Notes:
The record is a 148-nucleotide sequence from Enterococcus asini, which matches "glmS glucosamine-6-phosphate activated ribozyme aptamer" in Rfam. It is annotated as a riboswitch. It scores 89 bits against the family's covariance model. NCBI's taxonomy places the organism under Bacteria, Bacillati, Lactobacillales, Enterococcus, Enterococcus asini.

RNA sequence: CCAUUACGGAUAGCGCCAGGCCUGUAAGACAGGUGACGAGGAGAGAGCUUAUCGAAAGAUUCGGCGGGUGGCUCUGGGGACUGCACUCCUUAGCUCAAGGCAAAACACGCUUGUGAAGGCGUGAGACAAAGACUUGGGCCGCAGGAAA
Numbered sequence: 001c002c003a004u005u006a007c008g009g010a011u012a013g014c015g016c017c018a019g020g021c022c023u024g025u026a027a028g029a030c031a032g033g034u035g036a037c038g039a040g041g042a043g044a045g046a047g048c049u050u051a052u053c054g055a056a057a058g059a060u061u062c063g064g065c066g067g068g069u070g071g072c073u074c075u076g077g078g079g080a081c082u083g084c085a086c087u088c089c090u091u092a093g094c095u096c097a098a099g100g101c102a103a104a105a106c107a108c109g110c111u112u113g114u115g116a117a118g119g120c121g122u123g124a125g126a127c128a129a130a131g132a133c134u135u136g137g138g139c140c141g142c143a144g145g146a147a148a
Base pairs, nucleotide, nucleotide: 020034021033022032023031024030025029044075045074046073047072048071052064053063054062055061076089077088078087079086094138095137096136097135098134099133106123107122108121109120110119111118112117
Dot-bracket structure: ...................((((((...)))))).........(((((...((((.....))))......)))))((((......))))....((((((......(((((((....))))))).........))))))..........